[Rfam]
RNA sequence: GUUUCGUGGUGACGGCUGCAGAGUAAACCGCUGGCUUCUGCAGCCUGAUGAGCUGAAAC
Numbered sequence: 001g002u003u004u005c006g007u008g009g010u011g012a013c014g015g016c017u018g019c020a021g022a023g024u025a026a027a028c029c030g031c032u033g034g035c036u037u038c039u040g041c042a043g044c045c046u047g048a049u050g051a052g053c054u055g056a057a058a059c
Stems, first nucleotide, its partner, number of pairs: 001059005014045010029034001
RNA: Selenocysteine insertion sequence 1
Organism: Takifugu flavidus